[Rfam]
RNA sequence: ACCUUUUAUUAAGCGCCUGGACUCAAAUUUUUGAGUUGACGAGGAUGAAGUUUUAUCGAAAUUUUCGGCGGAUGACUUCCGGUAUGCUACUACCGUUAAAAAUUCCACAAAACCCUGAGGCGACUUAGGGCACAAAGGGAAUUGGGUAGCUAU
Number, nucleotide and partner (000 for none) at each position: 001a000002c000003c000004u000005u000006u000007u000008a000009u000010u000011a000012a000013g000014c000015g000016c000017c000018u000019g000020g037021a036022c035023u034024c033025a032026a031027a000028u000029u000030u000031u026032u025033g024034a023035g022036u021037u020038g000039a000040c000041g000042a000043g000044g000045a000046u000047g079048a078049a077050g076051u075052u000053u000054u000055a000056u068057c067058g066059a065060a000061a000062u000063u000064u000065u059066c058067g057068g056069c000070g000071g000072a000073u000074g000075a051076c050077u049078u048079c047080c095081g094082g093083u092084a091085u000086g000087c000088u000089a000090c000091u084092a083093c082094c081095g080096u000097u000098a000099a000100a000101a143102a142103u141104u140105c139106c138107a000108c000109a000110a000111a000112a000113c130114c129115c128116u127117g126118a125119g124120g000121c000122g000123a000124c119125u118126u117127a116128g115129g114130g113131c000132a000133c000134a000135a000136a000137g000138g106139g105140a104141a103142u102143u101144g000145g000146g000147u000148a000149g000150c000151u000152a000153u000
RNA: glmS glucosamine-6-phosphate activated ribozyme aptamer
Organism: Anaerobranca californiensis